Annotation
UnaL2 LINE 3' element: a 54-nucleotide RNA sequence from Hucho hucho. By type it is a cis-regulatory element. The family has 30 seed sequences and 493,311 matches in Rfam 15.1.

Nucleotides: 054
Stems, first nucleotide, its partner, number of pairs: 013043001014041003020036006
Number, partner (000 for none) and nucleotide at each position: 001000c002000a003000c004000a005000c006000u007000c008000g009000a010000u011000a012000c013043u014041g015040u016039a017000a018000g019000u020036u021035g022034c023033u024032c025031u026000g027000g028000a029000u030000a031025a032024g033023a034022g035021u036020g037000u038000c039016u040015g041014c042000u043013a044000a045000a046000c047000g048000a049000c050000a051000a052000a053000u054000u